[Rfam]
RNA sequence: GUCAGGCGCUCUGGAAAGAGUCCCGCUCCUCGCGCACCCGCGCGGCGGACCGUGACCACCGACGGUGCAAGCCGCCCCCGGGCGGCGGAAUCUCUCAGGUCCAUGACAGAGCGGGGAGG
Numbered sequence: 001g002u003c004a005g006g007c008g009c010u011c012u013g014g015a016a017a018g019a020g021u022c023c024c025g026c027u028c029c030u031c032g033c034g035c036a037c038c039c040g041c042g043c044g045g046c047g048g049a050c051c052g053u054g055a056c057c058a059c060c061g062a063c064g065g066u067g068c069a070a071g072c073c074g075c076c077c078c079c080g081g082g083c084g085g086c087g088g089a090a091u092c093u094c095u096c097a098g099g100u101c102c103a104u105g106a107c108a109g110a111g112c113g114g115g116g117a118g119g
Stems, first nucleotide, its partner, number of pairs: 007113007020056003058100003061096002065094001067092001071086004